The record is an 86-nucleotide RNA sequence from Pteropus alecto, which matches "Small nucleolar RNA SNORD127" in Rfam. The organism belongs to Pteropus, within Eukaryota. The match comes from Rfam's covariance-model search (98 bits). Pairs were carried over by alignment from the consensus structure, which was predicted with WAR.
RNA sequence: UGACAACUAUGAUGAAAGGUUCUGUCUCUUUGUAAAUUAUUUAAUUACUAAAUGAAGACAACAGUUCCUCUAAACUGAUGUUGCCA
Numbered sequence: 001u002g003a004c005a006a007c008u009a010u011g012a013u014g015a016a017a018g019g020u021u022c023u024g025u026c027u028c029u030u031u032g033u034a035a036a037u038u039a040u041u042u043a044a045u046u047a048c049u050a051a052a053u054g055a056a057g058a059c060a061a062c063a064g065u066u067c068c069u070c071u072a073a074a075c076u077g078a079u080g081u082u083g084c085c086a
Base pairs, nucleotide, nucleotide: 001086002085004083005082006081007080